[Rfam]
RNA: Small nucleolar RNA SNORA5
RNA sequence: AGCAGCCUCGUCAAAUUCGGUGCCCUCCUGUGCCGUGGUGGGGACCGGCCCAAGGGCUGCCACAGCGACCUCUGUGCUCCACGGUCCCCGUGUCCCUGCUGUGGGACAUCAGGGACCCAGAUGGGUUACGGACACUC
Numbered sequence: 001a002g003c004a005g006c007c008u009c010g011u012c013a014a015a016u017u018c019g020g021u022g023c024c025c026u027c028c029u030g031u032g033c034c035g036u037g038g039u040g041g042g043g044a045c046c047g048g049c050c051c052a053a054g055g056g057c058u059g060c061c062a063c064a065g066c067g068a069c070c071u072c073u074g075u076g077c078u079c080c081a082c083g084g085u086c087c088c089c090g091u092g093u094c095c096c097u098g099c100u101g102u103g104g105g106a107c108a109u110c111a112g113g114g115a116c117c118c119a120g121a122u123g124g125g126u127u128a129c130g131g132a133c134a135c136u137c
Stems, first nucleotide, its partner, number of pairs: 002060004018047004023042003027038002074129003078125002086114003090110001